[Rfam]
RNA sequence: AAACUUACCUGGCGCCGGGUUCAGGGUGAUCAGCAAGGCUCCGACCCCAGGUGGAGGCUCAGCAUUGCACUCCGCUGUGUUGAAGCCUGCGACGGACUCUAAUCGGGUUCGCUCGGGUGCAUAGUUUUUGCCAGUGGGGAGCCUUCGGGCGUCCCUU
Dot-bracket structure: ...........((((.(((((..((((..........)))).))))).((((...(((.((((..........)))).)))...)))).((((((.((......)).)).).))).))))...............((((((((....))).))))).